The record is an 86-nucleotide sequence from Desulfoglaeba alkanexedens, which matches "Fluoride riboswitch aptamer (crcB RNA motif)" in Rfam.
The source organism's lineage runs through Bacteria, Pseudomonadati, Thermodesulfobacteriota, Syntrophobacteria and Desulfoglaeba alkanexedens.
It scores 46 bits against the family's covariance model.
RNA sequence: CAAAGCGACGGCAAUGAAGUCUGCCGGAACCGCCCGAUGGAAGUGCAUCCCGCGCAUAUAGUCGGGCUGAUGACUUCUACCUUGGG
Dot-bracket structure: .........[[[[..((((((]]]]......(((((((......................)))))))....)))))).........